[Rfam]
RNA: Gag/pol translational readthrough site
Organism: Mus spicilegus
RNA sequence: UGGGGGAGACAGGGUUCAGAUCCCCUCCCCAAACCCAGGGUAACCCUUAAAGUGGAGGGGAA
Numbered sequence: 001u002g003g004g005g006g007a008g009a010c011a012g013g014g015u016u017c018a019g020a021u022c023c024c025c026u027c028c029c030c031a032a033a034c035c036c037a038g039g040g041u042a043a044c045c046c047u048u049a050a051a052g053u054g055g056a057g058g059g060g061a062a
Stems, first nucleotide, its partner, number of pairs: 008041001010039001012036004016031001019028001022060006
Dot-bracket structure: .......[.[.[[[[[..[..((((((]..].]]]]..].].............))))))..